The record is a 40-nucleotide RNA, which matches "Prion pseudoknot" in Rfam. Gene Ontology term of the family: translation. The family's RNA type in Rfam is cis-regulatory element.

[Rfam]
RNA sequence: CCAUGGCGGUGGCUGGGGACAGCCUCACGGUGGUGGUUGG
Numbered sequence: 001c002c003a004u005g006g007c008g009g010u011g012g013c014u015g016g017g018g019a020c021a022g023c024c025u026c027a028c029g030g031u032g033g034u035g036g037u038u039g040g
Base pairs, nucleotide, nucleotide: 001030002029004027005026006025